[Rfam]
RNA sequence: GCAAUCCUUCGGGGCAGGGUGAGGCCAAACGGCCAAUUCCCGAUCGGUGGUGAUCCGAGCGCACGACUCGGUCAGUCCACGAGCCGCAAGGCACGAACUGGUGAGAUUCCAGUACCGACGGUAUAGUCCGGAUGAAAGAAGGAUGGC
Numbered sequence: 001g002c003a004a005u006c007c008u009u010c011g012g013g014g015c016a017g018g019g020u021g022a023g024g025c026c027a028a029a030c031g032g033c034c035a036a037u038u039c040c041c042g043a044u045c046g047g048u049g050g051u052g053a054u055c056c057g058a059g060c061g062c063a064c065g066a067c068u069c070g071g072u073c074a075g076u077c078c079a080c081g082a083g084c085c086g087c088a089a090g091g092c093a094c095g096a097a098c099u100g101g102u103g104a105g106a107u108u109c110c111a112g113u114a115c116c117g118a119c120g121g122u123a124u125a126g127u128c129c130g131g132a133u134g135a136a137a138g139a140a141g142g143a144u145g146g147c
Stems, first nucleotide, its partner, number of pairs: 004144007017041003043127002045117002047080004075115002085091001097113005119130003
FMN riboswitch aptamer (RFN element): a 147-nucleotide RNA from Alicyclobacillus acidocaldarius. A search with the family's covariance model found it, with a score of 89 bits. The family's consensus secondary structure is taken from published work. NCBI's taxonomy places the organism under Bacteria, Bacilli, Caryophanales, Alicyclobacillaceae, Alicyclobacillus acidocaldarius subsp. acidocaldarius.